RNA sequence: AAAAUAUGUCCAUUUAUACCGUAGACAGUAGGUGCUGAUAAGGCUUAAUUUCCUACCGAGGUGUAUAUAUAUCACAGCUCUAGCGUUACGUAUGCUUGUAUAUACAGCCUCCAUGUCGAAUGGAGGCUUUUUAUAUGGAACA
Dot-bracket structure: ...........................(((((.(((.....))).......)))))..................................................((((((((.....))))))))...............
Shown here is a 142-nucleotide RNA from Bacillus licheniformis, a member of the family "Ribosomal protein L10 leader".
Taxonomically the source falls in Bacillus licheniformis (Bacteria, Bacillota, Bacilli, Bacillaceae).